Notes
Rfam assigns this 95-nucleotide sequence from Machaerirhynchus nigripectus to the family "Small nucleolar RNA U83B". The literature on the family includes a 2000 paper in Nucleic Acids Res by Jady and Kiss, "Characterisation of the U83 and U84 small nucleolar RNAs: two novel 2'-O-ribose methylation guide RNAs that lack complementarities to ribosomal RNAs". Rfam links the family to the GO terms nucleolus and RNA processing. Pairs were carried over by alignment from the consensus structure. By type it is a C/D-box small nucleolar RNA. U83B belongs to the C/D family of snoRNAs. U83B like U83A has no documented RNA target and they share the same host gene with the C/D box snoRNA U43 (RPL3). N.B. U83A/B/C have no sequence similarity with the U83 snoRNA that was cloned by Jady and Kiss (2000).
RNA sequence: GUUGUUCAAUGAUGAGACCAUGGAAUGAGCGCUGGGCACAGCGCCUGACAUCCGUGAGGAGUCAUUCCAUGCUGCCUUCCUUCUGAGAACACAGC
Numbered sequence: 001g002u003u004g005u006u007c008a009a010u011g012a013u014g015a016g017a018c019c020a021u022g023g024a025a026u027g028a029g030c031g032c033u034g035g036g037c038a039c040a041g042c043g044c045c046u047g048a049c050a051u052c053c054g055u056g057a058g059g060a061g062u063c064a065u066u067c068c069a070u071g072c073u074g075c076c077u078u079c080c081u082u083c084u085g086a087g088a089a090c091a092c093a094g095c
Stems, first nucleotide, its partner, number of pairs: 001095005